[Rfam]
RNA sequence: UAACACCAAGGAAUGUUUUUCUCGCAAUAUUUUUCAGUGAGAGACGGAAAGGAAUCAAAACUGGCUACCUCAGCCAGUGGCGAGUAAUGCACAUAAGGACAAG
Numbered sequence: 001u002a003a004c005a006c007c008a009a010g011g012a013a014u015g016u017u018u019u020u021c022u023c024g025c026a027a028u029a030u031u032u033u034u035c036a037g038u039g040a041g042a043g044a045c046g047g048a049a050a051g052g053a054a055u056c057a058a059a060a061c062u063g064g065c066u067a068c069c070u071c072a073g074c075c076a077g078u079g080g081c082g083a084g085u086a087a088u089g090c091a092c093a094u095a096a097g098g099a100c101a102a103g
Stems, first nucleotide, its partner, number of pairs: 020042006060078007